[Rfam]
RNA sequence: CACGACCGGCCGGACACGCGUGUGCUCAUGUGCGUUCACGUACAGGACAUGUGAGUGACCCGGCCAUCAAGUGGAGGCUCCGAUCUCCCACCUGGUCGGCCCUCCGGCCGACGGGUCACCGGUCAGACGGUAUCGGGUCAGCAGUGCCCCGGACACCGUCCGAUGCGCCCCGCGGAAUAACGCGGCGGUGCUCCCCGGUUGUGAGGAGCCCCGCCUGUGUGCCGUACGGGGCGUUUUUU
Numbered sequence: 001c002a003c004g005a006c007c008g009g010c011c012g013g014a015c016a017c018g019c020g021u022g023u024g025c026u027c028a029u030g031u032g033c034g035u036u037c038a039c040g041u042a043c044a045g046g047a048c049a050u051g052u053g054a055g056u057g058a059c060c061c062g063g064c065c066a067u068c069a070a071g072u073g074g075a076g077g078c079u080c081c082g083a084u085c086u087c088c089c090a091c092c093u094g095g096u097c098g099g100c101c102c103u104c105c106g107g108c109c110g111a112c113g114g115g116u117c118a119c120c121g122g123u124c125a126g127a128c129g130g131u132a133u134c135g136g137g138u139c140a141g142c143a144g145u146g147c148c149c150c151g152g153a154c155a156c157c158g159u160c161c162g163a164u165g166c167g168c169c170c171c172g173c174g175g176a177a178u179a180a181c182g183c184g185g186c187g188g189u190g191c192u193c194c195c196c197g198g199u200u201g202u203g204a205g206g207a208g209c210c211c212c213g214c215c216u217g218u219g220u221g222c223c224g225u226a227c228g229g230g231g232c233g234u235u236u237u238u239u
Base pairs, nucleotide, nucleotide: 004124005123006122007121008120009119012061013060062117063116064115065114068094069093071091072090073089074088075086076085095112096111097110098109099108100107101106126160127159128158129157130156133152134151135150136149137148167232168231169230170229171228172227173224174223175222181219182218183217184215185214186213187212188211190209191208192207193206194205
Shown here is a 239-nucleotide RNA sequence from Actinacidiphila alni, a member of the family "Streptomyces RNA 1601".
The match comes from Rfam's covariance-model search (150 bits).
Rfam describes the family as follows. Identified by deep sequencing of transcriptome at the end of exponential growth phase. Appears longer on northern blot than sequencing transcript. Streptomyces specific.
On this family, see Vockenhuber et al., RNA Biol 2011: "Deep sequencing-based identification of small non-coding RNAs in Streptomyces coelicolor".